RNA sequence: AUUAAUAACAGGGGUCGGGCACCCUACAAAUUUAAU
Numbered sequence: 001a002u003u004a005a006u007a008a009c010a011g012g013g014g015u016c017g018g019g020c021a022c023c024c025u026a027c028a029a030a031u032u033u034a035a036u
Stems, first nucleotide, its partner, number of pairs: 001036005011025005
A member of the RNA family "S16-Flavobacteria ribosomal protein leader" from Cellulophaga lytica, 36 nucleotides long. A reference for the family is Eckert and Weinberg (2020), "Discovery of 20 novel ribosomal leader candidates in bacteria and archaea", BMC Microbiol. The sequence is in the family's curated seed alignment.